[Rfam]
RNA sequence: AUAUAUUGAGAGCUCAUCCAUAGUUGUCACUGUCUCAGAUCAUGACAAUUAUGGAUGAGCUCUUAAUAUAU
Numbered sequence: 001a002u003a004u005a006u007u008g009a010g011a012g013c014u015c016a017u018c019c020a021u022a023g024u025u026g027u028c029a030c031u032g033u034c035u036c037a038g039a040u041c042a043u044g045a046c047a048a049u050u051a052u053g054g055a056u057g058a059g060c061u062c063u064u065a066a067u068a069u070a071u
Base pairs, nucleotide, nucleotide: 001071002070003069004068005067006066007065008064009063010062011061012060013059014058015057016056017055018054019053020052021051022050023049024048025047026046027045028044029043031042032041
About this RNA
A member of the RNA family "mir-549 microRNA precursor family" from Macaca mulatta, 71 nucleotides long. The source organism's lineage runs through Eukaryota, Teleostomi, Euteleostomi, Euarchontoglires and Macaca. The base pairs follow the family's consensus structure, which was predicted with RNAalifold. The sequence is in the family's curated seed alignment. Its family is annotated with RISC complex and miRNA-mediated post-transcriptional gene silencing in the Gene Ontology. On this family, see Yue et al., BMC Genomics 2008: "Identification of novel homologous microRNA genes in the rhesus macaque genome".